[Rfam]
RNA sequence: GGUCUAUGAUGAAUAGUAAAAGGUCUGAUUAUCCUCAGACUUGCACUUCCAUGACCUUUUCUCCCAGCAGUUGCUCACCAGUCACGGCAGAGUAAUGGUGUGGCUGGCAGAGGGUUUGCUGUCAGCUUGUGAUGUGUUCAGUUCGUGUUGACCCGAAGCAUUGGAGACAUGACUGGGAUCAGCAUCCAACAGCCUUCCUCGAAGGAGUUUGGGGUCUUGGGUGGUUAUAUCUGGGCAUGUGAUCUGACUUUUUCUGCUGAGACC
Number, nucleotide and partner (000 for none) at each position: 001g264002g263003u262004c261005u000006a000007u000008g000009a000010u000011g000012a000013a000014u000015a000016g000017u000018a000019a000020a000021a000022g000023g000024u000025c000026u000027g000028a000029u000030u000031a000032u000033c000034c000035u000036c246037a245038g244039a243040c000041u241042u000043g000044c000045a000046c000047u221048u000049c220050c219051a218052u000053g216054a215055c000056c000057u000058u000059u000060u000061c207062u206063c205064c204065c121066a120067g119068c118069a117070g116071u000072u000073g000074c000075u000076c000077a000078c107079c106080a105081g104082u103083c102084a101085c100086g099087g000088c000089a000090g000091a000092g000093u000094a000095a000096u000097g000098g000099u086100g085101u084102g083103g082104c081105u080106g079107g078108c000109a000110g000111a000112g000113g000114g000115u000116u070117u069118g068119c067120u066121g065122u000123c000124a000125g000126c000127u000128u000129g187130u000131g186132a185133u184134g183135u182136g000137u000138u000139c000140a000141g000142u000143u000144c000145g173146u172147g000148u000149u169150g168151a000152c166153c000154c164155g000156a000157a000158g000159c000160a000161u000162u000163g000164g154165a000166g152167a000168c150169a149170u000171g000172a146173c145174u000175g000176g000177g000178a000179u000180c000181a000182g135183c134184a133185u132186c131187c129188a000189a000190c000191a000192g000193c000194c000195u000196u000197c000198c000199u000200c000201g000202a000203a000204g064205g063206a062207g061208u000209u000210u000211g000212g000213g000214g000215u054216c053217u000218u051219g050220g049221g047222u000223g000224g000225u000226u000227a000228u000229a000230u000231c000232u000233g000234g000235g000236c000237a000238u000239g000240u000241g041242a000243u039244c038245u037246g036247a000248c000249u000250u000251u000252u000253u000254c000255u000256g000257c000258u000259g000260a000261g004262a003263c002264c001

This 264-nucleotide RNA from Baryphthengus martii belongs to the Rfam family "Small Cajal body specific RNA 6".
NCBI's taxonomy places the organism under Eukaryota, Deuterostomia, Euteleostomi, Telluraves, Baryphthengus.
The family's RNA type in Rfam is small Cajal body RNA.
About the family: U88 is small Cajal body specific RNA (scaRNA). scaRNAs are a novel class of small nuclear RNAs which localise to the Cajal bodies. U88 is found associated with both fibrillarin and Gar1p and co-localises with coilin in Cajal bodies.
The base pairs follow the family's consensus structure, which is taken from published work.